The record is a 314-nucleotide RNA sequence from Sutterella sp. AM11-39, which matches "Bacterial RNase P class A" in Rfam. Ribonuclease P (RNase P) is a ubiquitous endoribonuclease, found in archaea, bacteria and eukarya as well as chloroplasts and mitochondria. The source organism's lineage runs through Bacteria, Pseudomonadati, Pseudomonadota, Sutterellaceae and Sutterella. On this family, see Frank and Pace, Annu Rev Biochem 1998: "Ribonuclease P: unity and diversity in a tRNA processing ribozyme".
RNA sequence: GGGGUGAGGCGGACGGCCGCAAUGAACUUGUUUUCAUUGAGGAAAGUCCGGACUCCGAAGGGCACCGUAGCAGGUAACGCCUGUCCGCCGCAAGGCGAGGAUUAGAGCAACAGAGACGAGCCGAUUCAGUUCGGGUGAAACGGGCAAUCUCUACGGGGAGUAACACCAAGUAAGCAGUCUUUGACCCGGCCCGGUGAGACUGCGGGUAGGUGGCUGGAGGCUCUGCGUGAGCAGAGUCCGAGAUGAAUGGUCGUCACUGCGGUUUUCGAAAGAAAGCCGCGGCACAGAAUCCGGCUUAUAGCUUCAGCCCGACG
Numbered sequence: 001g002g003g004g005u006g007a008g009g010c011g012g013a014c015g016g017c018c019g020c021a022a023u024g025a026a027c028u029u030g031u032u033u034u035c036a037u038u039g040a041g042g043a044a045a046g047u048c049c050g051g052a053c054u055c056c057g058a059a060g061g062g063c064a065c066c067g068u069a070g071c072a073g074g075u076a077a078c079g080c081c082u083g084u085c086c087g088c089c090g091c092a093a094g095g096c097g098a099g100g101a102u103u104a105g106a107g108c109a110a111c112a113g114a115g116a117c118g119a120g121c122c123g124a125u126u127c128a129g130u131u132c133g134g135g136u137g138a139a140a141c142g143g144g145c146a147a148u149c150u151c152u153a154c155g156g157g158g159a160g161u162a163a164c165a166c167c168a169a170g171u172a173a174g175c176a177g178u179c180u181u182u183g184a185c186c187c188g189g190c191c192c193g194g195u196g197a198g199a200c201u202g203c204g205g206g207u208a209g210g211u212g213g214c215u216g217g218a219g220g221c222u223c224u225g226c227g228u229g230a231g232c233a234g235a236g237u238c239c240g241a242g243a244u245g246a247a248u249g250g251u252c253g254u255c256a257c258u259g260c261g262g263u264u265u266u267c268g269a270a271a272g273a274a275a276g277c278c279g280c281g282g283c284a285c286a287g288a289a290u291c292c293g294g295c296u297u298a299u300a301g302c303u304u305c306a307g308c309c310c311g312a313c314g
Stems, first nucleotide, its partner, number of pairs: 001310003005306006011299001012255007020039007044297003048294005053160004060192004065156005070084005085099001086097004100151002105149002107145002121134004164212004174203006186194002219238008
Dot-bracket structure: (((.((((((((((((((.(((((((......)))))))....[[[.[[[[[((((...[[[[.((((((((((.....)))))(((((....)))).)((...((((............((((......)))).........))..)))))))))))))...((((......((((((......((.]]]]))...)))))).....))))......((((((((....))))))))..........)))))))..................................]]]]]]]].).)))))).)))....
The family's RNA type in Rfam is ribozyme.